RNA sequence: AGUAGCAAGAAGAAGCCAUCCGCUUCUCACCUUACGACCACAGGUUGUUGGGUUACCUAUAAGAACGGUUUUUUCGUAUCUUUAUGGGCGGGUGGUUAAACCUGCCCAUUUUUAUUAUU
Numbered sequence: 001a002g003u004a005g006c007a008a009g010a011a012g013a014a015g016c017c018a019u020c021c022g023c024u025u026c027u028c029a030c031c032u033u034a035c036g037a038c039c040a041c042a043g044g045u046u047g048u049u050g051g052g053u054u055a056c057c058u059a060u061a062a063g064a065a066c067g068g069u070u071u072u073u074u075c076g077u078a079u080c081u082u083u084a085u086g087g088g089c090g091g092g093u094g095g096u097u098a099a100a101c102c103u104g105c106c107c108a109u110u111u112u113u114a115u116u117a118u119u
Base pairs, nucleotide, nucleotide: 011027012026013025014024015023016022029053030052031051034048035047036046037045038044087106088105089104090103091102092101093100

A member of the RNA family "Ribosomal protein L20 leader" from Anaerobranca californiensis, 119 nucleotides long. The base pairs follow the family's consensus structure, which was predicted with CMfinder. The family's RNA type in Rfam is cis-regulatory leader. NCBI's taxonomy places the organism under Bacteria, Bacillati, Bacillota, Proteinivoracaceae, Anaerobranca californiensis. About the family: This family is a putative r-protein leader autoregulatory structure found in B. subtilis and other low-GC Gram-positive bacteria. It is located in the 5' untranslated regions of mRNAs encoding initiation factor 3 followed by ribosomal proteins L35 and L20 (infC-rpmI-rplT). A Rho-independent transcription terminator structure that is probably involved in regulation is included at the 3' end.